[Rfam]
RNA sequence: AGCUCUUCCAGUGCCUUCUGGCUUAGAUCAAGUGUAGUAUCUGUUCUUACAAUUUUAAUCGAUUGUAUCCUCUUACUAGAGGUCAAACAUUAAUCUCAUUUUUGUCCGUAGGCUUCGACUCCCUCAGCUUGCUGACAGUCAAGCCACUGUGUCCUCAGUCUUGCAUUAUCUCUGAGCGACGCGACCAUUC
Dot-bracket structure: ......((....(((....)))...))....................((((((........)))))).(((((....)))))............................((((..(((....((((....))))..))).))))..(((((((((((.............))))).)))))).......
Numbered sequence: 001a002g003c004u005c006u007u008c009c010a011g012u013g014c015c016u017u018c019u020g021g022c023u024u025a026g027a028u029c030a031a032g033u034g035u036a037g038u039a040u041c042u043g044u045u046c047u048u049a050c051a052a053u054u055u056u057a058a059u060c061g062a063u064u065g066u067a068u069c070c071u072c073u074u075a076c077u078a079g080a081g082g083u084c085a086a087a088c089a090u091u092a093a094u095c096u097c098a099u100u101u102u103u104g105u106c107c108g109u110a111g112g113c114u115u116c117g118a119c120u121c122c123c124u125c126a127g128c129u130u131g132c133u134g135a136c137a138g139u140c141a142a143g144c145c146a147c148u149g150u151g152u153c154c155u156c157a158g159u160c161u162u163g164c165a166u167u168a169u170c171u172c173u174g175a176g177c178g179a180c181g182c183g184a185c186c187a188u189u190c
Stems, first nucleotide, its partner, number of pairs: 007027002013022003048067006069082005111145004117140003124135004148183006154176005
A member of the RNA family "U2 spliceosomal RNA" from Dendryphion nanum, 190 nucleotides long.
Rfam classes the family as a spliceosomal small nuclear RNA.
A reference for the family is Zwieb (1997), "The uRNA database", Nucleic Acids Res.
The family has 208 seed sequences and 71,512 matches in Rfam 15.1.
Pairs were carried over by alignment from the consensus structure, which is taken from published work.